[Rfam]
RNA sequence: AGAGGUUGUAAGUUUGAGGUUAUAGCAGAAGCAUUCACAGUGCAGCCAUGUCAGAUUCCAGUAAAUCUGCAAAUUCUGCG
Numbered sequence: 001a002g003a004g005g006u007u008g009u010a011a012g013u014u015u016g017a018g019g020u021u022a023u024a025g026c027a028g029a030a031g032c033a034u035u036c037a038c039a040g041u042g043c044a045g046c047c048a049u050g051u052c053a054g055a056u057u058c059c060a061g062u063a064a065a066u067c068u069g070c071a072a073a074u075u076c077u078g079c080g
Base pairs, nucleotide, nucleotide: 013048018047019046020045021044025079026078027077028076029075030074031043032042033041052069053068054067055066056065057064
Shown here is an 80-nucleotide RNA from Alligator mississippiensis, a member of the family "Mammalian CPEB3 ribozyme". Pairs were carried over by alignment from the consensus structure, which is taken from published work. Lineage of the source: Eukaryota > Metazoa > Alligatoridae > Alligatorinae > Alligator.